Description: Rfam assigns this 181-nucleotide sequence from Cyprinodon variegatus to the family "Small nucleolar RNA SNORA81". The literature on the family includes a 2005 paper in Nucleic Acids Res by Gu et al., "A novel experimental approach for systematic identification of box H/ACA snoRNAs from eukaryotes". The family's consensus secondary structure was predicted with WAR. It scores 50 bits against the family's covariance model. It is annotated as an H/ACA-box small nucleolar RNA.
[Rfam]
RNA sequence: UCCUUCUGCAUCUACAGAAGUCUGCUGUAAUUGUGCGAUCCAGAUGAUUCUGUUUCACGCAAUCAUGGCAGCAGAUUAAAACGCAGACGGAGAUUAUGGCGCACUGCACCGAAAAUGAGCUGCAGUCGAACCUCUUUCUUAAUGUUCAUUGGCUGCAGUCUCAAGGUGAAGUGCUACAACC
Numbered sequence: 001u002c003c004u005u006c007u008g009c010a011u012c013u014a015c016a017g018a019a020g021u022c023u024g025c026u027g028u029a030a031u032u033g034u035g036c037g038a039u040c041c042a043g044a045u046g047a048u049u050c051u052g053u054u055u056c057a058c059g060c061a062a063u064c065a066u067g068g069c070a071g072c073a074g075a076u077u078a079a080a081a082c083g084c085a086g087a088c089g090g091a092g093a094u095u096a097u098g099g100c101g102c103a104c105u106g107c108a109c110c111g112a113a114a115a116u117g118a119g120c121u122g123c124a125g126u127c128g129a130a131c132c133u134c135u136u137u138c139u140u141a142a143u144g145u146u147c148a149u150u151g152g153c154u155g156c157a158g159u160c161u162c163a164a165g166g167u168g169a170a171g172u173g174c175u176a177c178a179a180c181c
Stems, first nucleotide, its partner, number of pairs: 020076002023073005030066002033063001037056001041052004101174005107168002123152001125150001128147003